This 91-nucleotide sequence from Papaver somniferum belongs to the Rfam family "MIR2275 microRNA precursor family".

[Rfam]
RNA sequence: UAGUUGUAGAUGAGAGUUGGACGAGACUAAACCAGUACUAAUCAGUUAGGGAAUGCUGGUUUAGUUUCCUCCAACAUCUCACUUACAACCU
Numbered sequence: 001u002a003g004u005u006g007u008a009g010a011u012g013a014g015a016g017u018u019g020g021a022c023g024a025g026a027c028u029a030a031a032c033c034a035g036u037a038c039u040a041a042u043c044a045g046u047u048a049g050g051g052a053a054u055g056c057u058g059g060u061u062u063a064g065u066u067u068c069c070u071c072c073a074a075c076a077u078c079u080c081a082c083u084u085a086c087a088a089c090c091u
Stems, first nucleotide, its partner, number of pairs: 004088005011081004016075006023068008032059002
The family's consensus secondary structure was predicted with RNAalifold.
Gene Ontology terms of the family: RISC complex and miRNA-mediated post-transcriptional gene silencing.